[Rfam]
RNA sequence: GAUUACAGCAAGUUUUGCAGGAUUGCAUCCAGCUUUAUUUCUACACGCUGUGCAAAUCCAUGCAAAACUCGCUGCACCA
Numbered sequence: 001g002a003u004u005a006c007a008g009c010a011a012g013u014u015u016u017g018c019a020g021g022a023u024u025g026c027a028u029c030c031a032g033c034u035u036u037a038u039u040u041c042u043a044c045a046c047g048c049u050g051u052g053c054a055a056a057u058c059c060a061u062g063c064a065a066a067a068c069u070c071g072c073u074g075c076a077c078c079a
Base pairs, nucleotide, nucleotide: 004076006074007073008072009071011069012068013067014066015065016064017063018062019061020059021058023055024054025053026052027051028050031049032048033047